Bacillaceae-1 RNA: a 68-nucleotide sequence from Psychrobacillus soli. The family's consensus secondary structure is taken from published work. NCBI's taxonomy places the organism under Bacteria, Bacillati, Bacillota, Caryophanales, Psychrobacillus.
RNA sequence: UUAGAAUGAUGGUAGCCUAAAAUCGUUGCGUCUAUGCGACGACGGCUAAUUGACCUGCAUUACGCAGG
Numbered sequence: 001u002u003a004g005a006a007u008g009a010u011g012g013u014a015g016c017c018u019a020a021a022a023u024c025g026u027u028g029c030g031u032c033u034a035u036g037c038g039a040c041g042a043c044g045g046c047u048a049a050u051u052g053a054c055c056u057g058c059a060u061u062a063c064g065c066a067g068g
Stems, first nucleotide, its partner, number of pairs: 011050001013048005025040005054068005
The family's RNA type in Rfam is small RNA.